[Rfam]
RNA sequence: GGCUCCUGCUCCACUACGGAUCGUCGGGCACGUACCUGCCCGUGGAAAGGAAUU
Dot-bracket structure: ......(..((((...........((((((......))))))))))..).....
RNA: msiK RNA
Organism: Tessaracoccus defluvii